[Rfam]
RNA sequence: UUCUUAUCCAGAGUGGUGGAGGGACUGGCCCUAUGAAACCCGGCAACCUAUCAAUAUCAAUUGAUGAGGUGCUAAUUCCAACAAAAUCAGGUGACUGAUUUUGGCAGAUAAGAG
Numbered sequence: 001u002u003c004u005u006a007u008c009c010a011g012a013g014u015g016g017u018g019g020a021g022g023g024a025c026u027g028g029c030c031c032u033a034u035g036a037a038a039c040c041c042g043g044c045a046a047c048c049u050a051u052c053a054a055u056a057u058c059a060a061u062u063g064a065u066g067a068g069g070u071g072c073u074a075a076u077u078c079c080a081a082c083a084a085a086a087u088c089a090g091g092u093g094a095c096u097g098a099u100u101u102u103g104g105c106a107g108a109u110a111a112g113a114g
Base pairs, nucleotide, nucleotide: 001114002113003112004111005110006109007108008107013041015040016039017038021031022030023029026080027079028078042073043072044071045070047069048068049066050065051064052063077106082103083102084101085100086099087098088097089096
A member of the RNA family "SAM riboswitch aptamer (S box leader)" from Brochothrix campestris, 114 nucleotides long. NCBI's taxonomy places the organism under Bacteria, Bacillati, Bacillota, Listeriaceae, Brochothrix campestris.